Nucleotides: 046
Base pairs, nucleotide, nucleotide: 006021007020008019009018010017011016
Number, partner (000 for none) and nucleotide at each position: 001000c002000a003000a004000u005000c006021g007020g008019u009018c010017c011016u012000u013000u014000u015000c016011a017010g018009g019008a020007c021006c022000a023000c024000c025000a026000u027000u028000c029000a030000g031000u032000u033000u034000u035000u036000a037000a038000a039000a040000g041000g042000a043000g044000g045000a046000a

The record is a 46-nucleotide RNA sequence from Drosophila melanogaster, which matches "Histone 3' UTR stem-loop" in Rfam. Rfam classes the family as a cis-regulatory element. The family's consensus secondary structure is taken from published work. NCBI's taxonomy places the organism under Eukaryota, Bilateria, Mandibulata, Pancrustacea, Sophophora. From the family's description: The mRNAs of metazoan histone genes lack a poly-A tail. 3' end processing occurs at a site between a highly conserved stem-loop (modelled by this family) and a purine rich region around 20 nts downstream (the histone downstream element, or HDE).